[Rfam]
RNA sequence: GGGAAACGAGGAUGGGGCUGAGGAGAGAAGCCGGCCCGAGUCCUCCUGGGGCAAGUAGGCUCA
Dot-bracket structure: .............((((((..((.....[[[[..))..)))))).............]]]]..
Ma3 gene ribosomal frameshift signal: a 63-nucleotide RNA from Equus asinus. Its family is annotated with translational frameshifting in the Gene Ontology. Rfam classes the family as a frameshift element. The match comes from Rfam's covariance-model search (40 bits). On this family, see Wills et al., J Biol Chem 2006: "A functional -1 ribosomal frameshift signal in the human paraneoplastic Ma3 gene". Pairs were carried over by alignment from the consensus structure, which is taken from published work. NCBI's taxonomy places the organism under Eukaryota, Bilateria, Amniota, Eutheria, Equus.